7SK RNA: a 315-nucleotide sequence from Chaetura pelagica. Clan: 7SK clan. On this family, see Wassarman and Steitz, Mol Cell Biol 1991: "Structural analyses of the 7SK ribonucleoprotein (RNP), the most abundant human small RNP of unknown function".
RNA sequence: GGAUGUGAGGGUGAUCUGGCUGCGACAUCUGUCACCAUUGAUCGCCAGGGUUGAUUUGGCUGAUCUGGCUGGCUAGGCGGGUGUCCCCUUCCUCCCUCACCGCUCCAUGUGCGUCCCUCCCGAAGCUGCGCGCUCGGUCGAAGAGGACGACCUUCCCCGAUAGAGACGUACCGUUCAUCGGUCAAGGGUAUACGGUAGCUGCGCUCCCCUGCUAGAACCUCCAAAAGAACUUCAAGCAAGAACUUCUUUUAUCUGCAUGUUUUGUUUCAGUCAGCUACAUUUGCAUGUCAUCAGCCAGGAUUUUGAUUCUCCGGC
Number, nucleotide and partner (000 for none) at each position: 001g106002g105003a104004u000005g100006u099007g098008a097009g096010g095011g094012u000013g091014a090015u000016c000017u000018g088019g087020c000021u000022g000023c000024g085025a084026c083027a082028u081029c080030u079031g078032u077033c076034a000035c068036c067037a066038u000039u000040g065041a064042u063043c062044g060045c059046c058047a000048g000049g000050g000051u000052u000053g000054a000055u000056u000057u000058g046059g045060c044061u000062g043063a042064u041065c040066u037067g036068g035069c000070u000071g000072g000073c000074u000075a000076g033077g032078c031079g030080g029081g028082u027083g026084u025085c024086c000087c019088c018089u000090u014091c013092c000093u000094c011095c010096c009097u008098c007099a006100c005101c000102g000103c000104u003105c002106c001107a000108u000109g000110u000111g000112c000113g000114u000115c168116c000117c165118u164119c163120c137121c136122g135123a134124a000125g133126c132127u000128g000129c000130g000131c000132g126133c125134u123135c122136g121137g120138u160139c159140g158141a000142a000143g000144a000145g156146g155147a154148c000149g000150a000151c000152c000153u000154u147155c146156c145157c000158c140159g139160a138161u000162a000163g119164a118165g117166a000167c000168g115169u000170a000171c000172c000173g000174u000175u000176c000177a000178u000179c000180g000181g000182u000183c000184a000185a000186g000187g000188g000189u000190a000191u000192a000193c000194g000195g000196u000197a000198g271199c270200u269201g000202c000203g000204c000205u000206c000207c264208c000209c000210u000211g260212c259213u000214a000215g000216a000217a000218c000219c255220u000221c000222c000223a000224a000225a250226a249227g248228a247229a000230c000231u000232u000233c000234a000235a000236g000237c000238a000239a000240g000241a000242a000243c000244u000245u000246c000247u228248u227249u226250u225251a000252u000253c000254u000255g219256c000257a000258u000259g212260u211261u000262u000263u000264g207265u000266u000267u000268c000269a200270g199271u198272c000273a000274g000275c000276u000277a000278c000279a000280u000281u000282u000283g000284c000285a000286u000287g000288u000289c000290a000291u000292c000293a000294g315295c314296c313297a310298g309299g308300a307301u306302u000303u000304u000305g000306a301307u300308u299309c298310u297311c000312c000313g296314g295315c294